[Rfam]
RNA sequence: GCCGGGAUGAUCCUGGUGGUCCGGGGUGCAGGCUUCAAACCUGUAGCCGAUUGACGUCGGAGUGGUUCGAUUCCACCUUCUGGC
Numbered sequence: 001g002c003c004g005g006g007a008u009g010a011u012c013c014u015g016g017u018g019g020u021c022c023g024g025g026g027u028g029c030a031g032g033c034u035u036c037a038a039a040c041c042u043g044u045a046g047c048c049g050a051u052u053g054a055c056g057u058c059g060g061a062g063u064g065g066u067u068c069g070a071u072u073c074c075a076c077c078u079u080c081u082g083g084c
Base pairs, nucleotide, nucleotide: 001084002083003082004081005080006079007078011026012025013024014023015022016021027045028044029043030042031041032040047060048059049058050057051056062076063075064074065073
Dot-bracket structure: (((((((...((((((....))))))((((((.......)))))).(((((....))))).((((.......)))).)))))))
Overview
The family of this 84-nucleotide RNA from Fasciola gigantica is "Selenocysteine transfer RNA". The match comes from Rfam's covariance-model search (66 bits).